[Rfam]
This 67-nucleotide sequence from Thermoflavimicrobium daqui belongs to the Rfam family "RAGATH-18 RNA". The match comes from Rfam's covariance-model search (51 bits). The organism belongs to Thermoflavimicrobium, within Bacteria. Rfam describes the family as follows. Actinobacteria, Firmicutes, Fusobacteria, Thermotogae (1 example).

RNA sequence: CCUUUGGAGUGUUACAUCAAACUGUCGUAGCGAGCUAUGGGCGAGGCAGGACACGCGGAAAUAGGAA
Numbered sequence: 001c002c003u004u005u006g007g008a009g010u011g012u013u014a015c016a017u018c019a020a021a022c023u024g025u026c027g028u029a030g031c032g033a034g035c036u037a038u039g040g041g042c043g044a045g046g047c048a049g050g051a052c053a054c055g056c057g058g059a060a061a062u063a064g065g066a067a
Stems, first nucleotide, its partner, number of pairs: 001065003005061001009054005022049003030042002